[Rfam]
RNA sequence: GCCUCUGAGCAUGAUCAAAAAAUUAACUUUUGUUCUUCCGAGUUGCCCAUGCGGAAAUUACAUGGAGACCUGAACUGAAGAGGC
Number, nucleotide and partner (000 for none) at each position: 001g000002c000003c082004u081005c080006u079007g000008a000009g000010c000011a000012u000013g000014a000015u000016c000017a000018a000019a000020a000021a000022a000023u000024u000025a000026a000027c000028u000029u000030u000031u000032g000033u000034u000035c000036u000037u000038c000039c000040g000041a000042g000043u000044u000045g000046c000047c000048c000049a000050u000051g000052c000053g000054g000055a000056a000057a000058u000059u000060a000061c000062a000063u000064g000065g000066a000067g000068a000069c000070c000071u000072g000073a000074a000075c000076u000077g000078a000079a006080g005081a004082g003083g000084c000
Shown here is an 84-nucleotide RNA from Cicer arietinum, a member of the family "Small nucleolar RNA Z159/U59". By type it is a C/D-box small nucleolar RNA. It scores 65 bits against the family's covariance model. Gene Ontology terms of the family: nucleolus and RNA processing.